[Rfam]
RNA sequence: AGUUCUUACAGUAUGAUACAACAUCCUGCCGCGAUGUUGUGCGACCUGCAGUGUCAGCUGAAAGAACA
Numbered sequence: 001a002g003u004u005c006u007u008a009c010a011g012u013a014u015g016a017u018a019c020a021a022c023a024u025c026c027u028g029c030c031g032c033g034a035u036g037u038u039g040u041g042c043g044a045c046c047u048g049c050a051g052u053g054u055c056a057g058c059u060g061a062a063a064g065a066a067c068a
Base pairs, nucleotide, nucleotide: 002067003066004065005064006063007062009060010059011058012057020038021037022036023035024034025033043055044054045053
RNA: bZIP non canonical Hac1/Xbp1 intron
Organism: Sclerotinia borealis